Shown here is a 115-nucleotide sequence, a member of the family "FTHFS RNA".
Pairs were carried over by alignment from the consensus structure, which is taken from published work.
It is one of the family's seed sequences.
The family's RNA type in Rfam is cis-regulatory element.
RNA sequence: CGCCUUGCCAACGCAAGGGAUUUCAGUAUGUUGCAAGCCAUUUCGACGGCUUGUGCCAUAGAUCUUGUAUGCGCUGUCCAAAUACAAGGCCCGCGCAAAUUUUAAAUACAAGGAG
Number, nucleotide and partner (000 for none) at each position: 001c000002g000003c018004c017005u016006u015007g014008c013009c000010a000011a000012c000013g008014c007015a006016a005017g004018g003019g000020a000021u000022u000023u000024c000025a000026g000027u000028a059029u058030g057031u000032u055033g054034c053035a000036a000037g050038c049039c048040a000041u000042u000043u000044c000045g000046a000047c000048g039049g038050c037051u000052u000053g034054u033055g032056c000057c030058a029059u028060a000061g000062a000063u000064c000065u000066u000067g000068u000069a000070u000071g096072c095073g094074c093075u000076g000077u000078c000079c000080a000081a000082a000083u000084a000085c000086a000087a000088g000089g000090c000091c000092c000093g074094c073095g072096c071097a000098a000099a000100u000101u000102u000103u000104a000105a000106a000107u000108a000109c000110a000111a000112g000113g000114a000115g000